RNA sequence: CUUCAGCGAGCCGAUCCACACCGGCCGGUCGGCGGGCCGGUCCUGGCCGUAGGUGGCCAGCAGGGCCUGCGCCUC
Number, nucleotide and partner (000 for none) at each position: 001c000002u000003u000004c000005a000006g000007c000008g000009a000010g000011c000012c000013g000014a000015u000016c024017c023018a000019c000020a000021c000022c000023g017024g016025c000026c000027g000028g000029u000030c000031g000032g070033c069034g000035g000036g000037c000038c065039g000040g000041u000042c000043c060044u059045g058046g000047c056048c055049g054050u000051a000052g000053g000054u049055g048056g047057c000058c045059a044060g043061c000062a000063g000064g000065g038066c000067c000068u000069g033070c032071g000072c000073c000074u000075c000
Rfam assigns this 75-nucleotide RNA sequence from Kitasatospora setae to the family "ASpks TB sRNA".